[Rfam]
RNA sequence: CUAUCAAACACCGUAAGGUCCUGUCCCGUUUUUGGCAGGCAUAUUUUGUGAUGCGCUCAGCGUGUCACGACCGGCGCCAAGCCGGCAUUUGACAGUACGGCCGGGUUAUCCCGGC
Numbered sequence: 001c002u003a004u005c006a007a008a009c010a011c012c013g014u015a016a017g018g019u020c021c022u023g024u025c026c027c028g029u030u031u032u033u034g035g036c037a038g039g040c041a042u043a044u045u046u047u048g049u050g051a052u053g054c055g056c057u058c059a060g061c062g063u064g065u066c067a068c069g070a071c072c073g074g075c076g077c078c079a080a081g082c083c084g085g086c087a088u089u090u091g092a093c094a095g096u097a098c099g100g101c102c103g104g105g106u107u108a109u110c111c112c113g114g115c
Stems, first nucleotide, its partner, number of pairs: 010019003020039006047069009071085004100115006
RNA: Pseudomon-groES RNA
Organism: Atopomonas hussainii